Small nucleolar RNA Z105: a 67-nucleotide sequence from Eragrostis curvula. Lineage of the source: Eukaryota > Streptophyta > Tracheophyta > Magnoliopsida > Eragrostis. Rfam 15.1 lists 621 matches to the family in 204 species. Rfam links the family to the GO terms RNA processing and nucleolus.
RNA sequence: UUGGCAUGAUGAGGAAAGAAUCUAAUUUCGUCUGAUGUUGAUGAAAAAUACCUCCUACUCAUUCUGA
Numbered sequence: 001u002u003g004g005c006a007u008g009a010u011g012a013g014g015a016a017a018g019a020a021u022c023u024a025a026u027u028u029c030g031u032c033u034g035a036u037g038u039u040g041a042u043g044a045a046a047a048a049u050a051c052c053u054c055c056u057a058c059u060c061a062u063u064c065u066g067a
Stems, first nucleotide, its partner, number of pairs: 006062004032043001

A reference for the family is Chen et al. (2003), "The high diversity of snoRNAs in plants: identification and comparative study of 120 snoRNA genes from Oryza sativa", Nucleic Acids Res. It scores 62 bits against the family's covariance model.